Rfam assigns this 123-nucleotide sequence from Dendroctonus ponderosae to the family "Phenylalanine leader peptide". Rfam classes the family as a cis-regulatory leader. The match comes from Rfam's covariance-model search (124 bits). Gene Ontology term of the family: cellular amino acid metabolic process.
[Rfam]
RNA sequence: GAUGAGCAUCAAACCGUUUUUCUUCGCAUUCUUUUUUACCUUCCCCUGACUGGGAGGCGUUUCGUCGUAUAAGAAAGAAUGCGAAGACGAACAAAAAGCCUCCCACCGGGAGGCUUUUUUUUU
Dot-bracket structure: ...............((((.((((((((((((((.(((...((((......))))((((...))))...))).)))))))))))))).))))..((((((((((...))))))))))......
Numbered sequence: 001g002a003u004g005a006g007c008a009u010c011a012a013a014c015c016g017u018u019u020u021u022c023u024u025c026g027c028a029u030u031c032u033u034u035u036u037u038a039c040c041u042u043c044c045c046c047u048g049a050c051u052g053g054g055a056g057g058c059g060u061u062u063c064g065u066c067g068u069a070u071a072a073g074a075a076a077g078a079a080u081g082c083g084a085a086g087a088c089g090a091a092c093a094a095a096a097a098g099c100c101u102c103c104c105a106c107c108g109g110g111a112g113g114c115u116u117u118u119u120u121u122u123u
Stems, first nucleotide, its partner, number of pairs: 016092004021087014036072003042055004056066004095117010